[Rfam]
Nucleotides: 096
Stems, first nucleotide, its partner, number of pairs: 001028003004024005010019002065092003068088005074083002
Number, partner (000 for none) and nucleotide at each position: 001028a002027g003026g004024g005023c006022a007021g008020u009000a010019u011018c012000u013000g014000a015000g016000u017000a018011g019010a020008a021007c022006u023005g024004c025000a026003c027002c028001u029000g030000a031000u032000g033000a034000a035000c036000a037000a038000a039000c040000u041000u042000g043000u044000u045000a046000u047000u048000a049000u050000a051000a052000a053000a054000u055000u056000u057000a058000a059000u060000a061000a062000u063000u064000u065092c066091u067090g068088c069087c070086u071085u072084g073000a074083u075082c076000u077000u078000a079000a080000u081000c082075g083074a084072c085071a086070g087069g088068g089000a090067c091066g092065g093000a094000g095000g096000a
Overview: Rfam assigns this 96-nucleotide RNA from Paenisporosarcina antarctica to the family "pan motif". It is annotated as a cis-regulatory element. A search with the family's covariance model found it, with a score of 64 bits. Pairs were carried over by alignment from the consensus structure, which is taken from published work. The source organism's lineage runs through Bacteria, Bacillati, Caryophanales, Caryophanaceae and Paenisporosarcina.